[Rfam]
RNA sequence: UUCUUAUCGAGAGCGGUGGAGGGACUGGCCCUAUGAUACCCGGCAACCGGUUUUUACACGGUGCUAAUUCCAGCGGAGCAAUGUGCUCUGAAAAGAUAAGAA
Numbered sequence: 001u002u003c004u005u006a007u008c009g010a011g012a013g014c015g016g017u018g019g020a021g022g023g024a025c026u027g028g029c030c031c032u033a034u035g036a037u038a039c040c041c042g043g044c045a046a047c048c049g050g051u052u053u054u055u056a057c058a059c060g061g062u063g064c065u066a067a068u069u070c071c072a073g074c075g076g077a078g079c080a081a082u083g084u085g086c087u088c089u090g091a092a093a094a095g096a097u098a099a100g101a102a
Base pairs, nucleotide, nucleotide: 001102002101003100004099005098006097007096008095013041015040016039017038021031022030023029025073026072027071028070042065043064044063045062047061048060049057069094074090075089076088077087078086079085
The record is a 102-nucleotide RNA sequence from Bacillus sp. MUM 116, which matches "SAM riboswitch aptamer (S box leader)" in Rfam. The organism belongs to Bacillus, within Bacteria. From the family's description: The SAM riboswitch is found upstream of a number of genes which code for proteins involved in methionine or cysteine biosynthesis in Gram-positive bacteria. Gene Ontology term of the family: regulation of gene expression. The match comes from Rfam's covariance-model search (86 bits).